[Rfam]
RNA sequence: AACCAUGCAGUGAACACAGAGCGAACUAUUCUUUCACCUUUUACUAAAGAAUACUGUGUGUUCGCUGCAGAAAGUGGCAUACGCCUAUUUUAGAGGGCUCUUUCAUUGGAAAAGGCC
Numbered sequence: 001a002a003c004c005a006u007g008c009a010g011u012g013a014a015c016a017c018a019g020a021g022c023g024a025a026c027u028a029u030u031c032u033u034u035c036a037c038c039u040u041u042u043a044c045u046a047a048a049g050a051a052u053a054c055u056g057u058g059u060g061u062u063c064g065c066u067g068c069a070g071a072a073a074g075u076g077g078c079a080u081a082c083g084c085c086u087a088u089u090u091u092a093g094a095g096g097g098c099u100c101u102u103u104c105a106u107u108g109g110a111a112a113a114g115g116c117c
Base pairs, nucleotide, nucleotide: 003077004076005075006074008067009066010065011064012063013062014061015060016059017058018057027053028052029051030050031049032048033047034046095117097116098115099114101112102111
RNA: U5 spliceosomal RNA
Organism: Hibiscus syriacus